[Rfam]
RNA: NiCo (Nickel/Cobalt) riboswitch aptamer
Organism: Lachnospiraceae bacterium TWA4
RNA sequence: ACAGUACAAUCUGAUCAGACCUAACGCCGGUAAGAGUAAUCUAUCGCUAAGGAGUCGGGCCUAAUAUGGGCAACGGAUGUAAGAUACAGCAUCUGUGGGACAGUA
Numbered sequence: 001a002c003a004g005u006a007c008a009a010u011c012u013g014a015u016c017a018g019a020c021c022u023a024a025c026g027c028c029g030g031u032a033a034g035a036g037u038a039a040u041c042u043a044u045c046g047c048u049a050a051g052g053a054g055u056c057g058g059g060c061c062u063a064a065u066a067u068g069g070g071c072a073a074c075g076g077a078u079g080u081a082a083g084a085u086a087c088a089g090c091a092u093c094u095g096u097g098g099g100a101c102a103g104u105a
Stems, first nucleotide, its partner, number of pairs: 011103003016099001018056003022050001023048001025046002059071005073096006